[Rfam]
RNA sequence: AAGUGUUACAGCUCUUUUACUAUUUGUCUAGCAGGUUCUUAUUCUGUAGGAGCCACA
Numbered sequence: 001a002a003g004u005g006u007u008a009c010a011g012c013u014c015u016u017u018u019a020c021u022a023u024u025u026g027u028c029u030a031g032c033a034g035g036u037u038c039u040u041a042u043u044c045u046g047u048a049g050g051a052g053c054c055a056c057a
Base pairs, nucleotide, nucleotide: 034054035053036052037051038050039049040048041047
RNA: U7 small nuclear RNA